[Rfam]
RNA sequence: CCUUGACAGUUGCAUGGUGCGACUGACAGUUGCCAAGACAAGGAGAUUGAUAUG
Numbered sequence: 001c002c003u004u005g006a007c008a009g010u011u012g013c014a015u016g017g018u019g020c021g022a023c024u025g026a027c028a029g030u031u032g033c034c035a036a037g038a039c040a041a042g043g044a045g046a047u048u049g050a051u052a053u054g
Stems, first nucleotide, its partner, number of pairs: 002042004007025005

Shown here is a 54-nucleotide RNA, a member of the family "Mu-gpT-DE RNA". The family's consensus secondary structure is taken from published work. Rfam classes the family as a small RNA.